[Rfam]
The family of this 68-nucleotide RNA from Clupea harengus is "mir-139 microRNA precursor family". For this family Rfam cites "Conservation of small RNA pathways in platypus" (Murchison et al., Genome Res, 2008). The source organism's lineage runs through Eukaryota, Metazoa, Gnathostomata, Clupeoidei and Clupea.
RNA sequence: CUGUACUCUACAGUGCAUGUGUCUCCAGUGUGUGUAUGGUGCUGGAGAUGCUGCCCUGUUGGAGUAAC
Numbered sequence: 001c002u003g004u005a006c007u008c009u010a011c012a013g014u015g016c017a018u019g020u021g022u023c024u025c026c027a028g029u030g031u032g033u034g035u036a037u038g039g040u041g042c043u044g045g046a047g048a049u050g051c052u053g054c055c056c057u058g059u060u061g062g063a064g065u066a067a068c
Stems, first nucleotide, its partner, number of pairs: 006064004010059004015054002019051011